[Rfam]
RNA sequence: GGCCGGAUAAGCAAAGCGCAUCCGGCAUUCAACGCCUGAUGCGACGCUGGCGCGUCUUAUCAGGCC
Numbered sequence: 001g002g003c004c005g006g007a008u009a010a011g012c013a014a015a016g017c018g019c020a021u022c023c024g025g026c027a028u029u030c031a032a033c034g035c036c037u038g039a040u041g042c043g044a045c046g047c048u049g050g051c052g053c054g055u056c057u058u059a060u061c062a063g064g065c066c
Base pairs, nucleotide, nucleotide: 002026003025004024005023006022007021008020011017012016034065035064036063037062038061039060040059041058043056044055045054046053047052